Shown here is a 64-nucleotide sequence from Litomosoides sigmodontis, a member of the family "mir-36_2 microRNA precursor family". It scores 65 bits against the family's covariance model. The base pairs follow the family's consensus structure, which was predicted with RNAalifold. Clan: mir-36 clan.
RNA sequence: UUCUGGAUGUGCAUCGUGGUUGAUGUAGUUUGAUAAUUCUCAUCACCGGGUGCACAUUCGGCCA
Numbered sequence: 001u002u003c004u005g006g007a008u009g010u011g012c013a014u015c016g017u018g019g020u021u022g023a024u025g026u027a028g029u030u031u032g033a034u035a036a037u038u039c040u041c042a043u044c045a046c047c048g049g050g051u052g053c054a055c056a057u058u059c060g061g062c063c064a
Stems, first nucleotide, its partner, number of pairs: 003061013017048003021045002024042002027040002